[Rfam]
RNA sequence: GGGCAUACUUGUAGACCUUGCCUGACUGUGCUCCUGCCAGGCAGGGGGGACAGUGUAUACAAGAGUAAUUUGGAGUUUAUGCUAGCUCUAGCGAGCUUAAUCAAUGGCUGGAUAAAUUGCAGUACUGUUACAUUC
Numbered sequence: 001g002g003g004c005a006u007a008c009u010u011g012u013a014g015a016c017c018u019u020g021c022c023u024g025a026c027u028g029u030g031c032u033c034c035u036g037c038c039a040g041g042c043a044g045g046g047g048g049g050a051c052a053g054u055g056u057a058u059a060c061a062a063g064a065g066u067a068a069u070u071u072g073g074a075g076u077u078u079a080u081g082c083u084a085g086c087u088c089u090a091g092c093g094a095g096c097u098u099a100a101u102c103a104a105u106g107g108c109u110g111g112a113u114a115a116a117u118u119g120c121a122g123u124a125c126u127g128u129u130a131c132a133u134u135c
Stems, first nucleotide, its partner, number of pairs: 003060001005058004016046009072128001074126002077124001080121003092111001094109003